SAM (S-adenosyl methionine) riboswitch aptamer: a 110-nucleotide RNA sequence from Lapillicoccus jejuensis. The match comes from Rfam's covariance-model search (99 bits). Rfam links the family to the GO terms S-adenosylmethionine metabolic process and regulation of gene expression. From the family's description: SAM-IV is a mRNA element that regulates gene expression via direct sensing of S-adenosylmethionine (SAM or AdoMet). The organism belongs to Lapillicoccus, within Bacteria. The family's consensus secondary structure is taken from published work. The literature on the family includes a 2008 paper in RNA by Weinberg et al., "The aptamer core of SAM-IV riboswitches mimics the ligand-binding site of SAM-I riboswitches".
[Rfam]
RNA sequence: GGUCAUGAGCGCCAGCGUCAAGCCCCGGCUCGCUGGCCGGCAACCCUCCUCGCGGCGGGGUGCCCCGGGUGAUGACACGGCCCGCCGGUCCCGGCGGGCAAGCGCGAUCA
Numbered sequence: 001g002g003u004c005a006u007g008a009g010c011g012c013c014a015g016c017g018u019c020a021a022g023c024c025c026c027g028g029c030u031c032g033c034u035g036g037c038c039g040g041c042a043a044c045c046c047u048c049c050u051c052g053c054g055g056c057g058g059g060g061u062g063c064c065c066c067g068g069g070u071g072a073u074g075a076c077a078c079g080g081c082c083c084g085c086c087g088g089u090c091c092c093g094g095c096g097g098g099c100a101a102g103c104g105c106g107a108u109c110a
Stems, first nucleotide, its partner, number of pairs: 002076003009038001011037006021030002039064003044060003048055002080099008